Rfam assigns this 525-nucleotide part of an RNA from Thermoproteus uzoniensis to the family "Archaeal small subunit ribosomal RNA". The organism belongs to Thermoproteus uzoniensis, within Archaea.
RNA sequence: AAACCGGUUGAUCCUGCCGGACCUGACCGCUAUCGGGGUGGGGCUAAGCCAUGCGAGUCGCGCGCCCGGGGCGCCGGGCGCGGCGCACGGCUCAGUAACACGUGCCCAACCUACCCUCGGGAGGGGGACAACCCCGGGAAACUGGGGCUGAUCCCCCAUAGGGGAAGGGCGCUGGAAGGCCCCUUCCCCCAAAGGGAUCUCGGGCGAUCUCCCGGGAUCCGCCCGAGGAUGGGGGCACGGCCCAUCAGGUUGUUGGCGGGGUAACGGCCCGCCAAGCCGAAGACGGGUAGGGGCGGUGAGAGCCGUGAGCCCCGAGAUGGGCACUGAGACAAGGGCCCAGGCCCUACGGGGUGCAGCAGGCGCGAAUACUCCGCAAUGCGGGCAACCGCGACGGGGCCACCCCGAGUGCCGGGCGAAGAGCCCGGCUUUUGCCCGGUGUAAGGAGCCGGGCGAAUAAGCGGGGGGUAAGUCUGGUGUCAGCCGCCGCGGUAAUACCAGCCCCGCGAGUGGUCAGGGUGAUUACUG
Numbered sequence: 001a002a003a004c005c006g007g008u009u010g011a012u013c014c015u016g017c018c019g020g021a022c023c024u025g026a027c028c029g030c031u032a033u034c035g036g037g038g039u040g041g042g043g044c045u046a047a048g049c050c051a052u053g054c055g056a057g058u059c060g061c062g063c064g065c066c067c068g069g070g071g072c073g074c075c076g077g078g079c080g081c082g083g084c085g086c087a088c089g090g091c092u093c094a095g096u097a098a099c100a101c102g103u104g105c106c107c108a109a110c111c112u113a114c115c116c117u118c119g120g121g122a123g124g125g126g127g128a129c130a131a132c133c134c135c136g137g138g139a140a141a142c143u144g145g146g147g148c149u150g151a152u153c154c155c156c157c158a159u160a161g162g163g164g165a166a167g168g169g170c171g172c173u174g175g176a177a178g179g180c181c182c183c184u185u186c187c188c189c190c191a192a193a194g195g196g197a198u199c200u201c202g203g204g205c206g207a208u209c210u211c212c213c214g215g216g217a218u219c220c221g222c223c224c225g226a227g228g229a230u231g232g233g234g235g236c237a238c239g240g241c242c243c244a245u246c247a248g249g250u251u252g253u254u255g256g257c258g259g260g261g262u263a264a265c266g267g268c269c270c271g272c273c274a275a276g277c278c279g280a281a282g283a284c285g286g287g288u289a290g291g292g293g294c295g296g297u298g299a300g301a302g303c304c305g306u307g308a309g310c311c312c313c314g315a316g317a318u319g320g321g322c323a324c325u326g327a328g329a330c331a332a333g334g335g336c337c338c339a340g341g342c343c344c345u346a347c348g349g350g351g352u353g354c355a356g357c358a359g360g361c362g363c364g365a366a367u368a369c370u371c372c373g374c375a376a377u378g379c380g381g382g383c384a385a386c387c388g389c390g391a392c393g394g395g396g397c398c399a400c401c402c403c404g405a406g407u408g409c410c411g412g413g414c415g416a417a418g419a420g421c422c423c424g425g426c427u428u429u430u431g432c433c434c435g436g437u438g439u440a441a442g443g444a445g446c447c448g449g450g451c452g453a454a455u456a457a458g459c460g461g462g463g464g465g466u467a468a469g470u471c472u473g474g475u476g477u478c479a480g481c482c483g484c485c486g487c488g489g490u491a492a493u494a495c496c497a498g499c500c501c502c503g504c505g506a507g508u509g510g511u512c513a514g515g516g517u518g519a520u521u522a523c524u525g
Stems, first nucleotide, its partner, number of pairs: 004020005022515010033405009042363001048361003052358003057084003062081003066077004091316003101239007110232002115228007123157004132147006162188008171180002195220010241287003248278003253275008290313004294305004318339005341352004369395001371394003377390005408426007431451007458504006471498004480487002